[Rfam]
RNA sequence: AAAUUAGACGCAUUCUUCCUUCGUAUAUCCUCGAGAAUAAGGCUCGAGAGUCUCUACCGGGGCACCGAUAAUGCCCUGACUAUGAAGGUGGGAAUCUCUUGA
Numbered sequence: 001a002a003a004u005u006a007g008a009c010g011c012a013u014u015c016u017u018c019c020u021u022c023g024u025a026u027a028u029c030c031u032c033g034a035g036a037a038u039a040a041g042g043c044u045c046g047a048g049a050g051u052c053u054c055u056a057c058c059g060g061g062g063c064a065c066c067g068a069u070a071a072u073g074c075c076c077u078g079a080c081u082a083u084g085a086a087g088g089u090g091g092g093a094a095u096c097u098c099u100u101g102a
Base pairs, nucleotide, nucleotide: 018088019087020086021085022084023083024082025081030048031047032046033045034044035043058078059077060076061075062074063073064072
This 102-nucleotide sequence from Halobacillus sp. BBL2006 belongs to the Rfam family "Purine riboswitch aptamer". Clan: Purine riboswitches. The base pairs follow the family's consensus structure, which is taken from published work.